[Rfam]
Annotation
A member of the RNA family "Plastid-psbA-3 3UTR RNA" from Lactuca sativa, 57 nucleotides long. Taxonomically the source falls in Lactuca (Eukaryota, Viridiplantae, Magnoliopsida, Pentapetalae). The base pairs follow the family's consensus structure, which was predicted with LocARNA. A search with the family's covariance model found it, with a score of 54 bits. Its Rfam clan is "Plastid-psbA 3UTR RNA clan". Rfam describes the family as follows. Plastid psbA-3 is a non-coding RNA (ncRNA) present in plastids. It was identified in inverted repeat sequences in the 3 prime untranslate region (3UTR) of photosystem II quinone-binding protein (psbA).
RNA sequence: AAAGGAGCAAUAGUUUCCCUCUUAUUUUAUCAAUAGGGCAUUAUUGCUCAUUUUUUU
Numbered sequence: 001a002a003a004g005g006a007g008c009a010a011u012a013g014u015u016u017c018c019c020u021c022u023u024a025u026u027u028u029a030u031c032a033a034u035a036g037g038g039c040a041u042u043a044u045u046g047c048u049c050a051u052u053u054u055u056u057u
Stems, first nucleotide, its partner, number of pairs: 001053003005049010019036002022033002